[Rfam]
RNA sequence: UAGUGAGGUAGAGGCGCGAUAUUUAACAGUCUUUAGCGGAGCUUGAGAAGCUAUGAUGCUAUUGAGAAGGAAAUGUCGCCGAAGCUUGUAAUAUUCUCUGUAUUGCUUGCUGGGUCUGCAGUUAAGAACUGCAGGACUGUCUCAAUAAACAUCCCGGUUUAUUGAGUUGUGCUAUCUCAUUU
Numbered sequence: 001u002a003g004u005g006a007g008g009u010a011g012a013g014g015c016g017c018g019a020u021a022u023u024u025a026a027c028a029g030u031c032u033u034u035a036g037c038g039g040a041g042c043u044u045g046a047g048a049a050g051c052u053a054u055g056a057u058g059c060u061a062u063u064g065a066g067a068a069g070g071a072a073a074u075g076u077c078g079c080c081g082a083a084g085c086u087u088g089u090a091a092u093a094u095u096c097u098c099u100g101u102a103u104u105g106c107u108u109g110c111u112g113g114g115u116c117u118g119c120a121g122u123u124a125a126g127a128a129c130u131g132c133a134g135g136a137c138u139g140u141c142u143c144a145a146u147a148a149a150c151a152u153c154c155c156g157g158u159u160u161a162u163u164g165a166g167u168u169g170u171g172c173u174a175u176c177u178c179a180u181u182u
Base pairs, nucleotide, nucleotide: 006177007176008175009174010173011172016079017078018077019076020075021074022073023072024071031064034061035060036059037058038057083111084110085109088106089105090104091103092102093101094100112138113137115135116134117133118132119131120130121129122128141166142165143164144163145162146161147160148159149158
Source information: A member of the RNA family "Lysine riboswitch aptamer" from Cytobacillus dafuensis, 182 nucleotides long. A search with the family's covariance model found it, with a score of 103 bits. Its family is annotated with lysine biosynthetic process in the Gene Ontology. The organism belongs to Cytobacillus, within Bacteria.